[Rfam]
RNA sequence: UCCUUAUCAAGAGCGGCGGAGGGACAGGCCCUGUGAUGCCCGGCAACCUGUAGCGAGAGGAUCGCUGCAAGGUGCUAAUUCCUGCGGAAUACGAGCGCGUUGACGGCGGAAAGCCGCGCGGGCUCUCCCGAAAGAUGAGGC
Numbered sequence: 001u002c003c004u005u006a007u008c009a010a011g012a013g014c015g016g017c018g019g020a021g022g023g024a025c026a027g028g029c030c031c032u033g034u035g036a037u038g039c040c041c042g043g044c045a046a047c048c049u050g051u052a053g054c055g056a057g058a059g060g061a062u063c064g065c066u067g068c069a070a071g072g073u074g075c076u077a078a079u080u081c082c083u084g085c086g087g088a089a090u091a092c093g094a095g096c097g098c099g100u101u102g103a104c105g106g107c108g109g110a111a112a113g114c115c116g117c118g119c120g121g122g123c124u125c126u127c128c129c130g131a132a133a134g135a136u137g138a139g140g141c
Base pairs, nucleotide, nucleotide: 002140003139004138005137006136007135008134013041015040016039017038021031022030023029025084026083027082028081042076043075044074045073047072048071050068051067052066053065054064055063056062080133085130086129087128089126